[Rfam]
Description: The record is a 74-nucleotide RNA from Albula goreensis, which matches "mir-148/mir-152 microRNA precursor family" in Rfam. On this family, see Kim et al., Proc Natl Acad Sci U S A 2004: "Identification of many microRNAs that copurify with polyribosomes in mammalian neurons". Pairs were carried over by alignment from the consensus structure, which was predicted with RNAalifold. The match comes from Rfam's covariance-model search (73 bits). Lineage of the source: Eukaryota > Bilateria > Teleostomi > Albulidae > Albula.
RNA sequence: UCAGGCUCAAGUUCUGUGAUACACUUUGGCUCUGAGCUUGAAGCGGUCAGUGCAUAACAGAACUUUGGCUUAGG
Dot-bracket structure: ...((((.((((((((.....((((..((((.............)))))))).....)))))))).))))....